[Rfam]
RNA: nhaA-I RNA
RNA sequence: GGGUGCGUUGUUGCAUAAAGCACGGCGCAGGUUAAAAGCCAAGCAUUGGUCGGGCCGCCAAUG
Numbered sequence: 001g002g003g004u005g006c007g008u009u010g011u012u013g014c015a016u017a018a019a020g021c022a023c024g025g026c027g028c029a030g031g032u033u034a035a036a037a038g039c040c041a042a043g044c045a046u047u048g049g050u051c052g053g054g055c056c057g058c059c060a061a062u063g
Stems, first nucleotide, its partner, number of pairs: 005028007044063007